RNA sequence: CUAAAGGCCCUUUUCAGGGCCACACACGCUUUCAUUUGAAGGAGCU
Numbered sequence: 001c002u003a004a005a006g007g008c009c010c011u012u013u014u015c016a017g018g019g020c021c022a023c024a025c026a027c028g029c030u031u032u033c034a035u036u037u038g039a040a041g042g043a044g045c046u
Stems, first nucleotide, its partner, number of pairs: 006021006
RNA: Histone 3' UTR stem-loop